Rfam assigns this 75-nucleotide RNA sequence from Actinotalea fermentans to the family "c-di-GMP-I riboswitch aptamer".
The source organism's lineage runs through Bacteria, Bacillati, Actinomycetes, Micrococcales and Actinotalea.
RNA sequence: CAGCGAAAAGGGCAAACCCACCGCGAGGUGGGGACGCAAAGCCACGGGACCCUCGAGGUCGGCCGGGCGAACCGA
Numbered sequence: 001c002a003g004c005g006a007a008a009a010g011g012g013c014a015a016a017c018c019c020a021c022c023g024c025g026a027g028g029u030g031g032g033g034a035c036g037c038a039a040a041g042c043c044a045c046g047g048g049a050c051c052c053u054c055g056a057g058g059u060c061g062g063c064c065g066g067g068c069g070a071a072c073c074g075a
Base pairs, nucleotide, nucleotide: 012037013036017032018031019030020029021028022027041068042067043066045065046064047063048060049059050058